[Rfam]
The record is a 139-nucleotide RNA sequence, which matches "poplar-1 RNA" in Rfam. The family's consensus secondary structure is taken from published work.
Nucleotides: 139
Stems, first nucleotide, its partner, number of pairs: 012065004018057003031044005067097001070094005081128004101134004107122004
Number, partner (000 for none) and nucleotide at each position: 001000u002000u003000u004000g005000a006000g007000c008000c009000g010000a011000g012065g013064g014063g015062c016000u017000u018057u019056g020055c021000a022000g023000a024000a025000a026000c027000g028000a029000c030000a031044g032043g033042u034041c035040g036000g037000c038000g039000u040035c041034g042033a043032c044031c045000a046000g047000a048000a049000a050000c051000u052000g053000u054000a055020g056019c057018a058000a059000g060000u061000a062015g063014c064013c065012c066000g067097c068000u069000u070094u071093a072092c073091g074090u075000g076000a077000c078000g079000g080000a081128c082127u083126g084125a085000c086000u087000g088000a089000a090074g091073c092072g093071u094070a095000a096000u097067g098000a099000a100000a101134u102133a103132c104131u105000g106000a107122a108121c109120u110119c111000a112000a113000u114000g115000c116000a117000a118000c119110g120109a121108g122107u123000a124000g125084u126083c127082a128081g129000a130000c131104a132103g133102u134101a135000g136000u137000u138000u139000a